[Rfam]
RNA sequence: AGGCAACCACCAUCUUUGAUUUGAGUAAAAUGGGUGGUGUUAAUCUGCUCAUACAGAGAAUUUUACUUUAGCUCUUCAGACUUGCUGAAUCUUUUAUUAUGAAGCUUGUCUAGUAAGCUUAAGCACACU
Numbered sequence: 001a002g003g004c005a006a007c008c009a010c011c012a013u014c015u016u017u018g019a020u021u022u023g024a025g026u027a028a029a030a031u032g033g034g035u036g037g038u039g040u041u042a043a044u045c046u047g048c049u050c051a052u053a054c055a056g057a058g059a060a061u062u063u064u065a066c067u068u069u070a071g072c073u074c075u076u077c078a079g080a081c082u083u084g085c086u087g088a089a090u091c092u093u094u095u096a097u098u099a100u101g102a103a104g105c106u107u108g109u110c111u112a113g114u115a116a117g118c119u120u121a122a123g124c125a126c127a128c129u
Stems, first nucleotide, its partner, number of pairs: 002041004007037002010033004015029003066123003071118003078111004084105003089097002
The family of this 129-nucleotide RNA from Striga hermonthica is "Small nucleolar RNA snoR77". Pairs were carried over by alignment from the consensus structure, which was predicted with WAR. It is annotated as an H/ACA-box small nucleolar RNA.